[Rfam]
The family of this 79-nucleotide RNA from Drosophila mojavensis is "Small nucleolar RNA CD11".
The sequence is in the family's curated seed alignment.
Rfam links the family to the GO terms nucleolus and RNA processing.
The source organism's lineage runs through Eukaryota, Ecdysozoa, Pancrustacea, Eumetabola and mojavensis species complex.
RNA sequence: AGUAACUACAGUGAUGAACGAUGCAACGGAAGAGUUCCUUGAAGACUAUAUUCAUCACCCAAGACUGAUGCCACUAAUU
Numbered sequence: 001a002g003u004a005a006c007u008a009c010a011g012u013g014a015u016g017a018a019c020g021a022u023g024c025a026a027c028g029g030a031a032g033a034g035u036u037c038c039u040u041g042a043a044g045a046c047u048a049u050a051u052u053c054a055u056c057a058c059c060c061a062a063g064a065c066u067g068a069u070g071c072c073a074c075u076a077a078u079u
Base pairs, nucleotide, nucleotide: 001075002074003073029037030036031035